Group II catalytic intron D1-D4-3: a 172-nucleotide RNA from Sphingobacterium sp. SGL-16.
The pairing is the family consensus, mapped onto this sequence.
NCBI's taxonomy places the organism under Bacteria, Pseudomonadati, Sphingobacteriales, Sphingobacteriaceae, Sphingobacterium.

[Rfam]
Nucleotides: 172
Stems, first nucleotide, its partner, number of pairs: 001016006028172002031169001036164001040159005046151005062146006073138003079133006085113004091106004
Number, partner (000 for none) and nucleotide at each position: 001016u002015c003014u004013a005012u006011c007000g008000c009000g010000a011006g012005g013004u014003a015002g016001a017000a018000u019000c020000u021000g022000a023000a024000g025000g026000a027000a028172g029171u030000c031169u032000g033000c034000g035000g036164c037000a038000a039000a040159c041158a042157u043156c044155u045000g046151a047150c048149c049148u050147g051000a052000c053000g054000g055000a056000c057000a058000g059000a060000a061000a062146c063145u064144u065143g066142a067141u068000a069000u070000a071000a072000g073138g074137c075136u076000a077000a078000a079133g080132g081131a082130c083129g084128u085113g086112g087111g088110c089000g090000a091106g092105u093104c094103u095000g096000c097000a098000a099000g100000a101000c102000a103094a104093g105092a106091c107000g108000a109000a110088g111087c112086c113085c114000g115000a116000u117000a118000g119000c120000u121000a122000u123000u124000c125000g126000g127000a128084a129083c130082g131081u132080c133079c134000a135000u136075a137074g138073u139000a140000a141067a142066u143065c144064a145063a146062g147050c148049a149048g150047g151046u152000a153000u154000a155044a156043g157042a158041u159040g160000g161000a162000a163000a164036g165000a166000a167000u168000a169031a170000a171029a172028u